[Rfam]
RNA sequence: GGAUCCUGUACUGAGCUGCCCCGAGGCCCUCCAUUGCGCCCAGCUCGGGGCAGCUCAGUACAGGGUGC
Numbered sequence: 001g002g003a004u005c006c007u008g009u010a011c012u013g014a015g016c017u018g019c020c021c022c023g024a025g026g027c028c029c030u031c032c033a034u035u036g037c038g039c040c041c042a043g044c045u046c047g048g049g050g051c052a053g054c055u056c057a058g059u060a061c062a063g064g065g066u067g068c
Stems, first nucleotide, its partner, number of pairs: 008061011020049006
Dot-bracket structure: .......(((((((((((.((((((..................)))))).))))))))))).......
This 68-nucleotide RNA sequence from Otolemur garnettii belongs to the Rfam family "mir-486 microRNA precursor family".
The match comes from Rfam's covariance-model search (88 bits).
Its family is annotated with RISC complex and miRNA-mediated post-transcriptional gene silencing in the Gene Ontology.
The family has 16 seed sequences and 224 matches in Rfam 15.1.
Lineage of the source: Eukaryota > Tetrapoda > Lorisiformes > Galagidae > Otolemur.